RNA sequence: GAAAUUAUAGUCGCCUAAAUGGCGAUUUUUUUAUAGCCGAAAAUCAGCAAAUCAAACCCUUUAAAGGGGUACAUCAAUUUG
Numbered sequence: 001g002a003a004a005u006u007a008u009a010g011u012c013g014c015c016u017a018a019a020u021g022g023c024g025a026u027u028u029u030u031u032u033a034u035a036g037c038c039g040a041a042a043a044u045c046a047g048c049a050a051a052u053c054a055a056a057c058c059c060u061u062u063a064a065a066g067g068g069g070u071a072c073a074u075c076a077a078u079u080u081g
Stems, first nucleotide, its partner, number of pairs: 009027007036048002039045002056070006
RNA: Aggregatibacter sRNA 82
Organism: Aggregatibacter actinomycetemcomitans